[Rfam]
RNA sequence: GGCCUCCCUCUGUGGGGUGAUCGAUCAUAGGGACCCCAGAUUGAAAACCCCGCAGAGGGAGGCC
Numbered sequence: 001g002g003c004c005u006c007c008c009u010c011u012g013u014g015g016g017g018u019g020a021u022c023g024a025u026c027a028u029a030g031g032g033a034c035c036c037c038a039g040a041u042u043g044a045a046a047a048c049c050c051c052g053c054a055g056a057g058g059g060a061g062g063c064c
Base pairs, nucleotide, nucleotide: 001064002063003062004061005060006059007058008057009056010055011054012053013052014051015050016049017048018047021044022043023042024041025040026039030035
Background
This 64-nucleotide sequence from Myotis davidii belongs to the Rfam family "mir-9242 microRNA precursor family". Taxonomically the source falls in Myotis (Eukaryota, Opisthokonta, Boreoeutheria, Vespertilionidae). It scores 64 bits against the family's covariance model. The family's consensus secondary structure was predicted with RNAalifold.